[Rfam]
This 73-nucleotide sequence belongs to the Rfam family "Selenocysteine insertion sequence 1". The literature on the family includes a 1996 paper in RNA by Walczak et al., "A novel RNA structural motif in the selenocysteine insertion element of eukaryotic selenoprotein mRNAs". By type it is a cis-regulatory element.
Nucleotides: 073
Base pairs, nucleotide, nucleotide: 001073002072003071004070005069015058016057017056018054019053020052021051022050023049024048030038031037032036
Number, partner (000 for none) and nucleotide at each position: 001073u002072a003071u004070u005069u006000c007000u008000u009000u010000g011000u012000g013000a014000u015058g016057a017056c018054c019053g020052a021051u022050u023049u024048u025000g026000a027000a028000a029000u030038g031037g032036g033000u034000u035000u036032c037031u038030c039000u040000a041000a042000u043000g044000c045000c046000a047000g048024g049023a050022a051021a052020u053019c054018g055000u056017g057016u058015c059000u060000g061000a062000u063000g064000u065000u066000g067000u068000c069005a070004a071003g072002u073001a